[Rfam]
RNA sequence: UUGUUAUCACGAAAGCUGGAGGGAAUAGACCCGAUGAAAGCUUAGCAACCCUUUACCACAAAGAAGGUGCUACAUUCUAACCGGAAACCGAUUCAUUUCAGGAACCCGGACAGAUAACCA
Numbered sequence: 001u002u003g004u005u006a007u008c009a010c011g012a013a014a015g016c017u018g019g020a021g022g023g024a025a026u027a028g029a030c031c032c033g034a035u036g037a038a039a040g041c042u043u044a045g046c047a048a049c050c051c052u053u054u055a056c057c058a059c060a061a062a063g064a065a066g067g068u069g070c071u072a073c074a075u076u077c078u079a080a081c082c083g084g085a086a087a088c089c090g091a092u093u094c095a096u097u098u099c100a101g102g103a104a105c106c107c108g109g110a111c112a113g114a115u116a117a118c119c120a
Base pairs, nucleotide, nucleotide: 001120003118004117005116006115007114008113013043014042015041016040017039021032022031023030026080028078044071045070046069047068049067050066051063052062053061054060076112081109082108083107084106